Background
RAGATH-18 RNA: a 75-nucleotide RNA. By type it is a small RNA.

RNA sequence: CCUAUGGAGAGUAGAAGAACUUGUGAGUAGUAUUUGAAUCAUUUUAGUAUGAAAGCAUACUCGUUGAAGUAGGAA
Number, nucleotide and partner (000 for none) at each position: 001c073002c072003u071004a070005u069006g000007g000008a000009g062010a061011g060012u059013a058014g000015a000016a000017g000018a000019a000020c000021u000022u057023g056024u055025g000026a000027g000028u000029a000030g050031u049032a048033u000034u000035u046036g045037a000038a000039u000040c000041a000042u000043u000044u000045u036046a035047g000048u032049a031050u030051g000052a000053a000054a000055g024056c023057a022058u013059a012060c011061u010062c009063g000064u000065u000066g000067a000068a000069g005070u004071a003072g002073g001074a000075a000